[Rfam]
The record is a 99-nucleotide RNA from Desulfitobacterium hafniense, which matches "Guanidine-I riboswitch aptamer" in Rfam. Pairs were carried over by alignment from the consensus structure. For this family Rfam cites "New RNA motifs suggest an expanded scope for riboswitches in bacterial genetic control" (Barrick et al., Proc Natl Acad Sci U S A, 2004). This family represents a conserved RNA structure found upstream of the ykkC and yxkD genes in Bacillus subtilis and related genes in other bacteria. NCBI's taxonomy places the organism under Bacteria, Clostridia, Eubacteriales, Desulfitobacteriaceae, Desulfitobacterium hafniense.
RNA sequence: AAAAAUGUUUUCUAGGGUUCCGCAACACGCUUUGUUGGUCUGGUCCGAGAGAAAACUCACAGCCUGGCUGUGUCACGGAGGGAUAAAAGCCUGGGAGAG
Numbered sequence: 001a002a003a004a005a006u007g008u009u010u011u012c013u014a015g016g017g018u019u020c021c022g023c024a025a026c027a028c029g030c031u032u033u034g035u036u037g038g039u040c041u042g043g044u045c046c047g048a049g050a051g052a053a054a055a056c057u058c059a060c061a062g063c064c065u066g067g068c069u070g071u072g073u074c075a076c077g078g079a080g081g082g083a084u085a086a087a088a089g090c091c092u093g094g095g096a097g098a099g
Stems, first nucleotide, its partner, number of pairs: 007056006015046002020043002022040001023037005058072006074094001076097001080092003